[Rfam]
RNA sequence: CGAAAAGCAGGGGCCUGUCUUCUUUAUCAUGAACCGGUCUCUCGUAAACCUCAGGGAUAUUGGAGUGAUCCAUUGUUCUUGGGUGAACCACAGCACUAUUCCCUGUGGCUAUUUGUGGUUCAGUAAAUGAUGGAACAAUU
Numbered sequence: 001c002g003a004a005a006a007g008c009a010g011g012g013g014c015c016u017g018u019c020u021u022c023u024u025u026a027u028c029a030u031g032a033a034c035c036g037g038u039c040u041c042u043c044g045u046a047a048a049c050c051u052c053a054g055g056g057a058u059a060u061u062g063g064a065g066u067g068a069u070c071c072a073u074u075g076u077u078c079u080u081g082g083g084u085g086a087a088c089c090a091c092a093g094c095a096c097u098a099u100u101c102c103c104u105g106u107g108g109c110u111a112u113u114u115g116u117g118g119u120u121c122a123g124u125a126a127a128u129g130a131u132g133g134a135a136c137a138a139u140u
Stems, first nucleotide, its partner, number of pairs: 005051001007049001011040002014037002017034001069134009084122007
Dot-bracket structure: ....(.(...((.((.(................).)).))........).).................(((((((((......(((((((.........................)))))))...)))))))))......
RNA: Small nucleolar RNA snoR74
Organism: Gossypium mustelinum